[Rfam]
RNA sequence: AAGCUCAAGGGCGUCCAAAUCUUGCCGAUGGCAUUUCCCUGUACGUUAGCGAUGACCGCAAGGUAGCAACCUGGAGUUUGGCCUCGUAAUAGUACGUGCACGGAAAUUACGGGGU
Numbered sequence: 001a002a003g004c005u006c007a008a009g010g011g012c013g014u015c016c017a018a019a020u021c022u023u024g025c026c027g028a029u030g031g032c033a034u035u036u037c038c039c040u041g042u043a044c045g046u047u048a049g050c051g052a053u054g055a056c057c058g059c060a061a062g063g064u065a066g067c068a069a070c071c072u073g074g075a076g077u078u079u080g081g082c083c084u085c086g087u088a089a090u091a092g093u094a095c096g097u098g099c100a101c102g103g104a105a106a107u108u109a110c111g112g113g114g115u
Stems, first nucleotide, its partner, number of pairs: 001079006008072003011046004016041002023033004049067002056063002082114008095102002